[Rfam]
RNA sequence: GGGUUACUCCUUGGCGCUUGCGCGCUGUUUUGAUGAAGAUUCGCACCUCUAUCAAAACGGGUAACCCCGCCUCUUGGCAAGGUCUUACUGUCAGAUCAAGUCUGAACUUCUACAGAUAACGCGCACCAUUCCCCAUCCCGAAACUGGGAAGCUCAUCCAGAUCACGCGGACGGACAUCGAGCGUGGCUU
Numbered sequence: 001g002g003g004u005u006a007c008u009c010c011u012u013g014g015c016g017c018u019u020g021c022g023c024g025c026u027g028u029u030u031u032g033a034u035g036a037a038g039a040u041u042c043g044c045a046c047c048u049c050u051a052u053c054a055a056a057a058c059g060g061g062u063a064a065c066c067c068c069g070c071c072u073c074u075u076g077g078c079a080a081g082g083u084c085u086u087a088c089u090g091u092c093a094g095a096u097c098a099a100g101u102c103u104g105a106a107c108u109u110c111u112a113c114a115g116a117u118a119a120c121g122c123g124c125a126c127c128a129u130u131c132c133c134c135a136u137c138c139c140g141a142a143a144c145u146g147g148g149a150a151g152c153u154c155a156u157c158c159a160g161a162u163c164a165c166g167c168g169g170a171c172g173g174a175c176a177u178c179g180a181g182c183g184u185g186g187c188u189u
Base pairs, nucleotide, nucleotide: 001067002066003065004064005063006062007061009060010059014025015024016023017022027058028057029056030055031054032053033052034051035050037048038047075159076158077157081152085151086150090107091106092104093103094102095101096100109147110146114145164184165183166182167181169178170177
Rfam assigns this 189-nucleotide sequence from Burkholderia glumae to the family "Proteobacterial sRNA psRNA2". Taxonomically the source falls in Burkholderia glumae (Bacteria, Pseudomonadati, Pseudomonadota, Burkholderia). Rfam classes the family as a small RNA. Rfam 15.1 lists 122 matches to the family in 36 species. It scores 139 bits against the family's covariance model. A reference for the family is Gvakharia et al. (2010), "Computational prediction and transcriptional analysis of sRNAs in Nitrosomonas europaea", FEMS Microbiol Lett.